[Rfam]
RNA: MIR2275 microRNA precursor family
Organism: Coptis chinensis
RNA sequence: CAUUUGAUAGUGAGAAUUGGAUGAAACUAAAUCUUUUGCCUUCUAUAGUAGAAGAGGGUUUAGUUUCCUCCAAUAUCUUACCUUCAACAG
Numbered sequence: 001c002a003u004u005u006g007a008u009a010g011u012g013a014g015a016a017u018u019g020g021a022u023g024a025a026a027c028u029a030a031a032u033c034u035u036u037u038g039c040c041u042u043c044u045a046u047a048g049u050a051g052a053a054g055a056g057g058g059u060u061u062a063g064u065u066u067c068c069u070c071c072a073a074u075a076u077c078u079u080a081c082c083u084u085c086a087a088c089a090g
Base pairs, nucleotide, nucleotide: 004087005086006085007084011080012079013078014077016074017073018072019071020070021069023067024066025065026064027063028062029061030060032058033057